[Rfam]
RNA sequence: UCCCCGCUUUUCCUCCCUGAGCGGGUGCUUCUUCCGCCUCGUGCGGACGAAGCUUCCCAGACCCGGCACCGCCUUCGGACGCGCCGGGUUUUUUUU
Number, nucleotide and partner (000 for none) at each position: 001u000002c000003c025004c024005c023006g022007c021008u020009u000010u000011u000012c000013c000014u000015c000016c000017c000018u000019g000020a008021g007022c006023g005024g004025g003026u000027g053028c052029u051030u050031c000032u000033u047034c046035c045036g044037c043038c000039u000040c000041g000042u000043g037044c036045g035046g034047a033048c000049g000050a030051a029052g028053c027054u000055u000056c000057c000058c000059a000060g000061a089062c088063c087064c086065g085066g084067c083068a000069c000070c000071g000072c000073c000074u000075u000076c000077g000078g000079a000080c000081g000082c000083g067084c066085c065086g064087g063088g062089u061090u000091u000092u000093u000094u000095u000096u000
A member of the RNA family "Burkholderia RNA 7 (anti-hemB)" from Xylophilus rhododendri, 96 nucleotides long. The family has 26 seed sequences and 479 matches in Rfam 15.1. This RNA motif was identified by computational search in b-proteobacteria Burkholderia. Co-purified with Hfq, expression confirmed by Northern blot. By type it is a small RNA. A reference for the family is Weinberg et al. (2007), "Identification of 22 candidate structured RNAs in bacteria using the CMfinder comparative genomics pipeline", Nucleic Acids Res.